RNA sequence: UAUUAGGUUGGUGCAAAAGUAAUUGUGGUGUUUGCCAUUGAAAGUAAUGACAAAAACCGCGAUUACUUUUGCACCAACCUAAUA
Numbered sequence: 001u002a003u004u005a006g007g008u009u010g011g012u013g014c015a016a017a018a019g020u021a022a023u024u025g026u027g028g029u030g031u032u033u034g035c036c037a038u039u040g041a042a043a044g045u046a047a048u049g050a051c052a053a054a055a056a057c058c059g060c061g062a063u064u065a066c067u068u069u070u071g072c073a074c075c076a077a078c079c080u081a082a083u084a
Base pairs, nucleotide, nucleotide: 001084002083003082004081005080006079007078008077009076010075011074012073013072014071015070016069017068018067019066020065021064022063023062024061025060026059027058028057029056031054032053033052034051036049037048038047039046040045
mir-548 microRNA precursor family: an 84-nucleotide RNA. It is one of the family's seed sequences. The family has 11 seed sequences and 3,009 matches in Rfam 15.1. A reference for the family is Witten et al. (2010), "Ultra-high throughput sequencing-based small RNA discovery and discrete statistical biomarker analysis in a collection of cervical tumours and matched controls", BMC Biol.